[Rfam]
RNA sequence: ACUUUCACAAAGGGGAGCCCACGGGCUGAGAUUGAGUUUACUCUAAACCCUAGUACCUGUUUCGGUUAUUCGAGCGUAGGAAUUGUGAUGAAGUAAUAC
Dot-bracket structure: .....(((((((((..(((....))).......(((....)))....))))....((((.((((......))))..))))..)))))............
The family of this 99-nucleotide RNA from Enterococcus hermanniensis is "TPP riboswitch aptamer (THI element)". NCBI's taxonomy places the organism under Bacteria, Bacillota, Lactobacillales, Enterococcaceae, Enterococcus. The match comes from Rfam's covariance-model search (61 bits).